[Rfam]
RNA sequence: CCGGGCGCCAGAUCGGGCCCGGUGCGGGCGCCGGGCCGGGUAUCUUCGGACCCCGUCUGAAACCCCUGUCCUGCGCUCCUUCGUACCCAUCUUGCUCUAUGGAGGACUUGGUUAUGAGGA
Numbered sequence: 001c002c003g004g005g006c007g008c009c010a011g012a013u014c015g016g017g018c019c020c021g022g023u024g025c026g027g028g029c030g031c032c033g034g035g036c037c038g039g040g041u042a043u044c045u046u047c048g049g050a051c052c053c054c055g056u057c058u059g060a061a062a063c064c065c066c067u068g069u070c071c072u073g074c075g076c077u078c079c080u081u082c083g084u085a086c087c088c089a090u091c092u093u094g095c096u097c098u099a100u101g102g103a104g105g106a107c108u109u110g111g112u113u114a115u116g117a118g119g120a
Base pairs, nucleotide, nucleotide: 001022002021003020004019005018006017008016009015026078027077028076029075030074031073033071034070035069036068080118081117082116083115084114085113087111088110089109092106093105095104096103097102